Overview:
The record is a 68-nucleotide sequence from Rhodoferax antarcticus, which matches "tRNA" in Rfam. NCBI's taxonomy places the organism under Bacteria, Pseudomonadota, Betaproteobacteria, Rhodoferax, Rhodoferax antarcticus. The match comes from Rfam's covariance-model search (50 bits).
RNA sequence: GGGGGUGUAGCUCAGUUGGGAGAGCGGUUGCUUUGCAAGCAGCAUGUCGCAGGUUCCUGUCACUUCCA
Number, nucleotide and partner (000 for none) at each position: 001g067002g066003g065004g064005g063006u062007g061008u000009a000010g025011c024012u023013c022014a000015g000016u000017u000018g000019g000020g000021a000022g013023a012024g011025c010026g000027g043028u042029u041030g040031c039032u000033u000034u000035g000036c000037a000038a000039g031040c030041a029042g028043c027044a000045u000046g000047u000048c000049g060050c059051a058052g057053g000054u000055u000056c000057c052058u051059g050060u049061c007062a006063c005064u004065u003066c002067c001068a000